[Rfam]
RNA sequence: ACUGGCAAGGAUGACAUACACUUGCCUUCACUUAGACCGUAGUUUGCUGAUGAGAGCACCUAGUUGUUCUGAGCCCGU
Numbered sequence: 001a002c003u004g005g006c007a008a009g010g011a012u013g014a015c016a017u018a019c020a021c022u023u024g025c026c027u028u029c030a031c032u033u034a035g036a037c038c039g040u041a042g043u044u045u046g047c048u049g050a051u052g053a054g055a056g057c058a059c060c061u062a063g064u065u066g067u068u069c070u071g072a073g074c075c076c077g078u
Stems, first nucleotide, its partner, number of pairs: 001078002004075003
RNA: Small nucleolar RNA SNORD103/SNORD85
Organism: Callorhinus ursinus